[Rfam]
RNA sequence: ACACGAGAGAGGAGGUGGUCUGAAGUUGAUGAACUCUAGGACGCGUGAGGUGGCUGUCAGCUAGCCGCAAUCGCUGACGGAUUCACUGCGAAGACCGCGCGAGCGGCAGGCGAAUCCCAGGCAGCUACCCGGCCCCCGAGCCCCCGACCUGUCCGGUCGGGACCUGACAUCAGGUAUGGCUCGGGGGCCGUUCGCA
Numbered sequence: 001a002c003a004c005g006a007g008a009g010a011g012g013a014g015g016u017g018g019u020c021u022g023a024a025g026u027u028g029a030u031g032a033a034c035u036c037u038a039g040g041a042c043g044c045g046u047g048a049g050g051u052g053g054c055u056g057u058c059a060g061c062u063a064g065c066c067g068c069a070a071u072c073g074c075u076g077a078c079g080g081a082u083u084c085a086c087u088g089c090g091a092a093g094a095c096c097g098c099g100c101g102a103g104c105g106g107c108a109g110g111c112g113a114a115u116c117c118c119a120g121g122c123a124g125c126u127a128c129c130c131g132g133c134c135c136c137c138g139a140g141c142c143c144c145c146g147a148c149c150u151g152u153c154c155g156g157u158c159g160g161g162a163c164c165u166g167a168c169a170u171c172a173g174g175u176a177u178g179g180c181u182c183g184g185g186g187g188c189c190g191u192u193c194g195c196a
Stems, first nucleotide, its partner, number of pairs: 014058006060111003064107002067104002072099003130190013143161006
RNA: Actinobacteria sRNA Ms_IGR-5
Organism: Rhodococcoides fascians